Record summary:
The family of this 97-nucleotide RNA from Diploscapter pachys is "tRNA". NCBI's taxonomy places the organism under Eukaryota, Eumetazoa, Protostomia, Rhabditina, Diploscapter.

Nucleotides: 097
Stems, first nucleotide, its partner, number of pairs: 001096007010024004026067005073089005
Number, partner (000 for none) and nucleotide at each position: 001096u002095g003094c004093a005092g006091c007090g008000u009000g010024g011023c012022g013021u014000a015000g016000a017000g018000g019000a020000a021013a022012c023011g024010c025000g026067u027066u028065g029064g030063g031000c032000u033000c034000a035000u036000a037000u038000g039000u040000u041000c042000g043000a044000g045000g046000a047000a048000a049000a050000g051000u052000u053000c054000c055000u056000c057000a058000a059000g060000g061000c062000a063030c064029u065028c066027a067026a068000a069000g070000a071000u072000c073089g074088g075087u076086g077085g078000a079000u080000c081000g082000a083000a084000a085077c086076c087075a088074c089073u090007c091006g092005c093004u094003g095002c096001a097000a
A search with the family's covariance model found it, with a score of 46 bits.